[Rfam]
This 94-nucleotide RNA sequence from Legionella beliardensis belongs to the Rfam family "RAGATH-13 RNA".
The family's RNA type in Rfam is ribozyme.
The source organism's lineage runs through Bacteria, Pseudomonadota, Gammaproteobacteria, Legionellaceae and Legionella.
Its family is annotated with catalytic activity in the Gene Ontology.

RNA sequence: UUUGAUUUGCCCCUAACUUGAGCCUUGCGGAUAAAACCGGGUAUCGCCUUUGAGUGAGCCGCUCGACCAACACUAAACCAAAGCCAGGGCAAAU
Numbered sequence: 001u002u003u004g005a006u007u008u009g010c011c012c013c014u015a016a017c018u019u020g021a022g023c024c025u026u027g028c029g030g031a032u033a034a035a036a037c038c039g040g041g042u043a044u045c046g047c048c049u050u051u052g053a054g055u056g057a058g059c060c061g062c063u064c065g066a067c068c069a070a071c072a073c074u075a076a077a078c079c080a081a082a083g084c085c086a087g088g089g090c091a092a093a094u
Base pairs, nucleotide, nucleotide: 005094006093007092008091009090010089011088012087018066019065020064021063022062023061028039029038030037040060041059042058044057045056